The record is a 60-nucleotide sequence from Granulicella aggregans, which matches "nadA riboswitch" in Rfam. It is annotated as a small RNA. On this family, see Huang et al., RNA 2020: "Structure and ligand binding of the ADP-binding domain of the NAD(+) riboswitch". The source organism's lineage runs through Bacteria, Pseudomonadati, Terriglobia, Terriglobales and Granulicella.
[Rfam]
RNA sequence: GCUUUCAACAUCCCCGUUCUCGAGCGGCUGCAGCUAUGCAGGGCUCGCUGGACUGAAGGC
Numbered sequence: 001g002c003u004u005u006c007a008a009c010a011u012c013c014c015c016g017u018u019c020u021c022g023a024g025c026g027g028c029u030g031c032a033g034c035u036a037u038g039c040a041g042g043g044c045u046c047g048c049u050g051g052a053c054u055g056a057a058g059g060c
Stems, first nucleotide, its partner, number of pairs: 001060007014043001016053004021047002026044001028041005